[Rfam]
Notes: This 253-nucleotide RNA sequence from Rhamnella rubrinervis belongs to the Rfam family "RNase MRP". Rfam's curators write: RNase MRP is an enzymatically active ribonucleoprotein with two distinct roles in eukaryotes. In mitochondria it plays a direct role in the initiation of mitochondrial DNA replication. In the nucleus it is involved in precursor rRNA processing, where it cleaves the internal transcribed spacer 1 between 18S and 5.8S rRNAs. It scores 78 bits against the family's covariance model. Rfam links the family to the GO terms ribonuclease MRP complex, ribonuclease MRP activity and rRNA processing. The family's consensus secondary structure is taken from published work. Lineage of the source: Eukaryota > Tracheophyta > Rhamnaceae > Rhamneae > Rhamnella.
RNA sequence: CCGUCACAAGACAAAGUGAUCGGGUCAUGACCUACGGGUCGGACCCAGGAAAGUCCCCGGGCCCAUAACUGCAGAGAUGCAGCCUCGGAAACGAGUGAGCUCUGUGUGCUAGAAAUUCUUUCGCACCAUCGGUGCGAUGGGCUGAGACACGUGUGGAGCCCAAUGGACUUCUAGCCCAGAGUAUCAUGGCCGAUUACACAGUUAUUCACUUGGUCCAUUGGACUAACUGAACGGGGCUUAUGAUCUUGUGACA
Numbered sequence: 001c002c003g004u005c006a007c008a009a010g011a012c013a014a015a016g017u018g019a020u021c022g023g024g025u026c027a028u029g030a031c032c033u034a035c036g037g038g039u040c041g042g043a044c045c046c047a048g049g050a051a052a053g054u055c056c057c058c059g060g061g062c063c064c065a066u067a068a069c070u071g072c073a074g075a076g077a078u079g080c081a082g083c084c085u086c087g088g089a090a091a092c093g094a095g096u097g098a099g100c101u102c103u104g105u106g107u108g109c110u111a112g113a114a115a116u117u118c119u120u121u122c123g124c125a126c127c128a129u130c131g132g133u134g135c136g137a138u139g140g141g142c143u144g145a146g147a148c149a150c151g152u153g154u155g156g157a158g159c160c161c162a163a164u165g166g167a168c169u170u171c172u173a174g175c176c177c178a179g180a181g182u183a184u185c186a187u188g189g190c191c192g193a194u195u196a197c198a199c200a201g202u203u204a205u206u207c208a209c210u211u212g213g214u215c216c217a218u219u220g221g222a223c224u225a226a227c228u229g230a231a232c233g234g235g236g237c238u239u240a241u242g243a244u245c246u247u248g249u250g251a252c253a
Stems, first nucleotide, its partner, number of pairs: 003252009014211006022046004028041005051239003055236004070081004084095004099182003108175006129165001139161004149154001213223004